[Rfam]
RNA sequence: GUAAAAAUAAGAAUUUUAUCGAUACUGCUCGCAAAAGCGAGAGCUGCUAGGUGCAGCAG
Numbered sequence: 001g002u003a004a005a006a007a008u009a010a011g012a013a014u015u016u017u018a019u020c021g022a023u024a025c026u027g028c029u030c031g032c033a034a035a036a037g038c039g040a041g042a043g044c045u046g047c048u049a050g051g052u053g054c055a056g057c058a059g
Base pairs, nucleotide, nucleotide: 028041029040030039031038032037043057044056045055046054047053
Rfam assigns this 59-nucleotide RNA sequence to the family "RAGATH-30 RNA". The base pairs follow the family's consensus structure, which is taken from published work. The family's RNA type in Rfam is small RNA. Rfam's curators put it in the seed alignment.